[Rfam]
Rfam assigns this 111-nucleotide sequence from Gottfriedia endophytica to the family "SAM riboswitch aptamer (S box leader)". The match comes from Rfam's covariance-model search (70 bits).

RNA sequence: CUCUUAUCCCGAGUAGGUGGAGGGAUACAGGCCCUACGAAGCCCAGCAACCUCACAGUUUGUGAAAGGUGCUGAACCUGAUGCAAGGUAAUUUUUCCUUGGACGAUAAGAG
Numbered sequence: 001c002u003c004u005u006a007u008c009c010c011g012a013g014u015a016g017g018u019g020g021a022g023g024g025a026u027a028c029a030g031g032c033c034c035u036a037c038g039a040a041g042c043c044c045a046g047c048a049a050c051c052u053c054a055c056a057g058u059u060u061g062u063g064a065a066a067g068g069u070g071c072u073g074a075a076c077c078u079g080a081u082g083c084a085a086g087g088u089a090a091u092u093u094u095u096c097c098u099u100g101g102a103c104g105a106u107a108a109g110a111g
Base pairs, nucleotide, nucleotide: 001111002110003109004108005107006106007105008104013044016043017042018041022034023033024032028082029081031077045072046071047070048069050068051067052064053063054062055061083100084099085098086097087096